The record is a 224-nucleotide part of an RNA from Thyridium curvatum, which matches "Eukaryotic large subunit ribosomal RNA" in Rfam. The match comes from Rfam's covariance-model search (2803 bits).
[Rfam]
RNA sequence: CGCUUAUGACCAGACUUGUGCCCUGCGGAUCAUCCAGCCUUCUGGCUGGUGCACUUCGCUUGGUUCAGGCCAGCAUCGGUUUUCUGAGGGGGAUAAAAGCUUCAGGGACGUGGCUCCUCCGGGAGCGUUAUAACCUGUUGCAAAAUACCCCUCGGGAGACCGAGGUUCGCGCAUCUGCAAGGAUGCUGGCGUAAUGGUCAUCAGCGACCCGUCUUGAAACACGG
Numbered sequence: 001c002g003c004u005u006a007u008g009a010c011c012a013g014a015c016u017u018g019u020g021c022c023c024u025g026c027g028g029a030u031c032a033u034c035c036a037g038c039c040u041u042c043u044g045g046c047u048g049g050u051g052c053a054c055u056u057c058g059c060u061u062g063g064u065u066c067a068g069g070c071c072a073g074c075a076u077c078g079g080u081u082u083u084c085u086g087a088g089g090g091g092g093a094u095a096a097a098a099g100c101u102u103c104a105g106g107g108a109c110g111u112g113g114c115u116c117c118u119c120c121g122g123g124a125g126c127g128u129u130a131u132a133a134c135c136u137g138u139u140g141c142a143a144a145a146u147a148c149c150c151c152u153c154g155g156g157a158g159a160c161c162g163a164g165g166u167u168c169g170c171g172c173a174u175c176u177g178c179a180a181g182g183a184u185g186c187u188g189g190c191g192u193a194a195u196g197g198u199c200a201u202c203a204g205c206g207a208c209c210c211g212u213c214u215u216g217a218a219a220c221a222c223g224g
Base pairs, nucleotide, nucleotide: 001206002205003204004203006201007200008199009198010197011196012195017067018066020064021063022062071188072187073186074185075184076183077182209224210223211222212221
The source organism's lineage runs through Eukaryota, Ascomycota, saccharomyceta, Sordariomycetes and Thyridium. The base pairs follow the family's consensus structure, which is taken from published work.